[Rfam]
RNA sequence: AGAAUAUAAGAAUCCGUCUCUUAACUUUUAACUAAAAAAGCUAAGAACCAGCUCUUAAAUAUCUUAUUUAAGAGCCGGUUCUUAGCUUUUUUAGUUAAAAGUUAAGAGACGGUUCUUAGAGCAU
Numbered sequence: 001a002g003a004a005u006a007u008a009a010g011a012a013u014c015c016g017u018c019u020c021u022u023a024a025c026u027u028u029u030a031a032c033u034a035a036a037a038a039a040g041c042u043a044a045g046a047a048c049c050a051g052c053u054c055u056u057a058a059a060u061a062u063c064u065u066a067u068u069u070a071a072g073a074g075c076c077g078g079u080u081c082u083u084a085g086c087u088u089u090u091u092u093a094g095u096u097a098a099a100a101g102u103u104a105a106g107a108g109a110c111g112g113u114u115c116u117u118a119g120a121g122c123a124u
Stems, first nucleotide, its partner, number of pairs: 004124002007118006014112026041085007
Annotation: Shown here is a 124-nucleotide RNA sequence from Brassica carinata, a member of the family "MIR9563 microRNA precursor family". Its family is annotated with RISC complex and miRNA-mediated post-transcriptional gene silencing in the Gene Ontology. The source organism's lineage runs through Eukaryota, Euphyllophyta, Spermatophyta, Brassicales and Brassica. The family's consensus secondary structure was predicted with RNAalifold.